Rfam assigns this 417-nucleotide RNA from Corynebacterium pilosum to the family "Bacterial RNase P class A".

RNA sequence: UGAGCCGGCCGGGUGAUCGCGGUACCCCGAACUAGCUGCACGAAUGCGGCACAAGCGGGGGUCGAGGAAAGUCCGGACUCCACAGGGCACGGUGGUUGCUAACAGCAACCCGGGGCAACCCGCGGGAAAGUGCAACAGAAAGUAGACCGCCCAGCUAAUGCUGGGUAAGGGUGAAAGGGUGCGUUAAGAGCGCACCGGCAUGCGUGGUGACACGCGUGGCCAGGUAAACCCCACUGGGAGCAAGGCAAUACACUGCGCUUUCGGGCGUGGUGGUUCGGAUGGUGAGGCUGCCCGCUGAGUCCGAAGGUAGCUGCUUGAGGCCGCCAGUGAUGGUGGGCCCAGAUGGAUGAUCGCCACCCGCGCCGUGCUGUUUGUGCGGUGCGGGGACAGAAUCCGGCUUAUAGGCUGGCUCAUUCG
Numbered sequence: 001u002g003a004g005c006c007g008g009c010c011g012g013g014u015g016a017u018c019g020c021g022g023u024a025c026c027c028c029g030a031a032c033u034a035g036c037u038g039c040a041c042g043a044a045u046g047c048g049g050c051a052c053a054a055g056c057g058g059g060g061g062u063c064g065a066g067g068a069a070a071g072u073c074c075g076g077a078c079u080c081c082a083c084a085g086g087g088c089a090c091g092g093u094g095g096u097u098g099c100u101a102a103c104a105g106c107a108a109c110c111c112g113g114g115g116c117a118a119c120c121c122g123c124g125g126g127a128a129a130g131u132g133c134a135a136c137a138g139a140a141a142g143u144a145g146a147c148c149g150c151c152c153a154g155c156u157a158a159u160g161c162u163g164g165g166u167a168a169g170g171g172u173g174a175a176a177g178g179g180u181g182c183g184u185u186a187a188g189a190g191c192g193c194a195c196c197g198g199c200a201u202g203c204g205u206g207g208u209g210a211c212a213c214g215c216g217u218g219g220c221c222a223g224g225u226a227a228a229c230c231c232c233a234c235u236g237g238g239a240g241c242a243a244g245g246c247a248a249u250a251c252a253c254u255g256c257g258c259u260u261u262c263g264g265g266c267g268u269g270g271u272g273g274u275u276c277g278g279a280u281g282g283u284g285a286g287g288c289u290g291c292c293c294g295c296u297g298a299g300u301c302c303g304a305a306g307g308u309a310g311c312u313g314c315u316u317g318a319g320g321c322c323g324c325c326a327g328u329g330a331u332g333g334u335g336g337g338c339c340c341a342g343a344u345g346g347a348u349g350a351u352c353g354c355c356a357c358c359c360g361c362g363c364c365g366u367g368c369u370g371u372u373u374g375u376g377c378g379g380u381g382c383g384g385g386g387a388c389a390g391a392a393u394c395c396g397g398c399u400u401a402u403a404g405g406c407u408g409g410c411u412c413a414u415u416c417g
Stems, first nucleotide, its partner, number of pairs: 001413010011402001012355007020064004025059003069400003073397005078240004085293004090236005095109005110124001111122004125231002130229002132225002147170002149166007178196006198220001199218008244312003286296003319338001321336006
Description
NCBI's taxonomy places the organism under Bacteria, Bacillati, Actinomycetota, Mycobacteriales, Corynebacterium. Ribonuclease P (RNase P) is a ubiquitous endoribonuclease, found in archaea, bacteria and eukarya as well as chloroplasts and mitochondria. It scores 274 bits against the family's covariance model. The base pairs follow the family's consensus structure, which is taken from published work.